[Rfam]
RNA: mir-290 microRNA precursor family
Organism: Camelus dromedarius
RNA sequence: GUGGCACUCAAACUGUGGGGGCACUUUCUGUUCUCCAAAGGGGAGUGCCGCCAUGUUUUGAGUGUUAC
Numbered sequence: 001g002u003g004g005c006a007c008u009c010a011a012a013c014u015g016u017g018g019g020g021g022c023a024c025u026u027u028c029u030g031u032u033c034u035c036c037a038a039a040g041g042g043g044a045g046u047g048c049c050g051c052c053a054u055g056u057u058u059u060g061a062g063u064g065u066u067a068c
Base pairs, nucleotide, nucleotide: 004065005064006063007062008061009060010059011058012057015054016053017052018051020049021048022047023046024045025044026043027042028041
Dot-bracket structure: ...(((((((((..((((.(((((((((............))))))))).))))..)))))))))...